RNA: Small nucleolar RNA SNORA61
RNA sequence: ACCCUCUGUUUCCCUUUUCCAUUGGGCCUGAAUGUUGGUCUUGGUGGUCAUAAAAGGAGAGAAAAUGAUACUGAAUCAGACCUCACAGCCUUGCAGUUCAGCGUAUAGCAAGUGGGCAGGUUUCAAACAGGA
Number, nucleotide and partner (000 for none) at each position: 001a000002c000003c000004c059005u058006c057007u056008g000009u000010u000011u000012c000013c000014c000015u000016u000017u000018u000019c047020c046021a045022u044023u043024g000025g040026g039027c038028c037029u000030g000031a000032a000033u000034g000035u000036u000037g028038g027039u026040c025041u000042u000043g023044g022045u021046g020047g019048u000049c000050a000051u000052a000053a000054a000055a000056g007057g006058a005059g004060a000061g000062a000063a000064a000065a000066u000067g000068a000069u000070a000071c000072u000073g000074a000075a000076u000077c120078a000079g000080a000081c116082c115083u114084c000085a000086c000087a000088g000089c000090c000091u000092u110093g109094c108095a000096g000097u000098u000099c000100a000101g000102c000103g000104u000105a000106u000107a000108g094109c093110a092111a000112g000113u000114g083115g082116g081117c000118a000119g000120g077121u000122u000123u000124c000125a000126a000127a000128c000129a000130g000131g000132a000